RNA sequence: CUGGAGGACUAAGAAAGUGGAGUCAGUAACAUUAUAUUGACUUCACUGAUACUAUCCUCCUAAAUUAAAUGGUGGAAGAACAAGGCCUGUCUGAAAGAGAAGGUCAGGACCUACUUCGUCUGCCUACAAGG
Dot-bracket structure: ..((((((.((......(((((((.(((....)))...)))))))....))...))))))..........((((((.(....(((((((...............)))).)))....).)))))).......
Notes
Shown here is a 131-nucleotide RNA from Aegotheles bennettii, a member of the family "Small Cajal body specific RNA 15". Rfam's curators write: scaRNAs are a specific class of small nuclear RNAs which localise to the Cajal bodies and guide the modification of RNA polymerase II transcribed spliceosomal RNAs U1, U2, U4, U5 and U12. ACA45 belongs to the H/ACA box class of guide RNAs as it has the predicted hairpin-hinge-hairpin-tail structure, the conserved H/ACA-box motifs and is found associated with GAR1. ACA45 is predicted to guide the pseudouridylation of residue U37 of the U2 spliceosomal snRNA. The literature on the family includes a 2002 paper in EMBO J by Darzacq et al., "Cajal body-specific small nuclear RNAs: a novel class of 2'-O-methylation and pseudouridylation guide RNAs".